[Rfam]
RNA sequence: GAAGCGCGAACCAAGCGGGCGCGUCAAAGCGCUGUGAGACUUGGAGCGGGCGACCGCAAGGGCGUCCUGCA
Numbered sequence: 001g002a003a004g005c006g007c008g009a010a011c012c013a014a015g016c017g018g019g020c021g022c023g024u025c026a027a028a029g030c031g032c033u034g035u036g037a038g039a040c041u042u043g044g045a046g047c048g049g050g051c052g053a054c055c056g057c058a059a060g061g062g063c064g065u066c067c068u069g070c071a
Stems, first nucleotide, its partner, number of pairs: 011044005018033005048067005054061002